Shown here is an 87-nucleotide sequence from Aneurinibacillus migulanus, a member of the family "c-di-GMP-I riboswitch aptamer". It scores 86 bits against the family's covariance model.
RNA sequence: ACAUCGAAAAGGCAAACUCAUCGAAAGAUGGGGACGCAAAGCCACGGGUCUAAGGGUUUUUAGAACUAUGACAGCCGGGUCGCCGAA
Dot-bracket structure: ...........((...((((((....))))))...))...(((.((((((....(.((....)).)...)))..)))))).......